Shown here is a 382-nucleotide sequence from Pseudohoeflea suaedae, a member of the family "Alphaproteobacteria transfer-messenger RNA". It is annotated as a non-coding RNA gene.
RNA sequence: GUCCUUUUCAAGCGCGCCUCAGCUCCCUAUAUUGGGGGUGCCGCUUCGCGCGGCUAUGGCAAUAAACGGCGUUGUAAUAAGCCAUUCGGACCCGGGGGCGGUACCCGGCGCCUCCACCAAGAUCCGGCGAAGCCGGGCCACACCCGCUCAGGGCGCGGCCGGAUGUUGAUGGGGGCGAAACAGGAUCGACGAGGGUGUAAAGAACGACUUUUUGCUCGGCAUGAUACCACCGUUAUCGGGUCACAAGUGUAGUUGCAAACGACAACAACGCUAAGGGUUACGCUGUCGCUGCCUAAUGGCGGUGCCAGAAACCCGAAUUAAGUCCUUGCGGGUAGCACUGUAAGGCGGGGUUCGGAGGCACCUGGCAACAGAAGCCUCCACU
Numbered sequence: 001g002u003c004c005u006u007u008u009c010a011a012g013c014g015c016g017c018c019u020c021a022g023c024u025c026c027c028u029a030u031a032u033u034g035g036g037g038g039u040g041c042c043g044c045u046u047c048g049c050g051c052g053g054c055u056a057u058g059g060c061a062a063u064a065a066a067c068g069g070c071g072u073u074g075u076a077a078u079a080a081g082c083c084a085u086u087c088g089g090a091c092c093c094g095g096g097g098g099c100g101g102u103a104c105c106c107g108g109c110g111c112c113u114c115c116a117c118c119a120a121g122a123u124c125c126g127g128c129g130a131a132g133c134c135g136g137g138c139c140a141c142a143c144c145c146g147c148u149c150a151g152g153g154c155g156c157g158g159c160c161g162g163a164u165g166u167u168g169a170u171g172g173g174g175g176c177g178a179a180a181c182a183g184g185a186u187c188g189a190c191g192a193g194g195g196u197g198u199a200a201a202g203a204a205c206g207a208c209u210u211u212u213u214g215c216u217c218g219g220c221a222u223g224a225u226a227c228c229a230c231c232g233u234u235a236u237c238g239g240g241u242c243a244c245a246a247g248u249g250u251a252g253u254u255g256c257a258a259a260c261g262a263c264a265a266c267a268a269c270g271c272u273a274a275g276g277g278u279u280a281c282g283c284u285g286u287c288g289c290u291g292c293c294u295a296a297u298g299g300c301g302g303u304g305c306c307a308g309a310a311a312c313c314c315g316a317a318u319u320a321a322g323u324c325c326u327u328g329c330g331g332g333u334a335g336c337a338c339u340g341u342a343a344g345g346c347g348g349g350g351u352u353c354g355g356a357g358g359c360a361c362c363u364g365g366c367a368a369c370a371g372a373a374g375c376c377u378c379c380a381c382u
Base pairs, nucleotide, nucleotide: 040054041053042052043051044050058216059215060214061213062212068209069208070206071205072204073203082195083194086192087191088190092108093107094106095105096104109177110176111175112174113173114172115171217232218231219230222243223242224241227239228238348363349362350361351360354379355378356377357376358375359374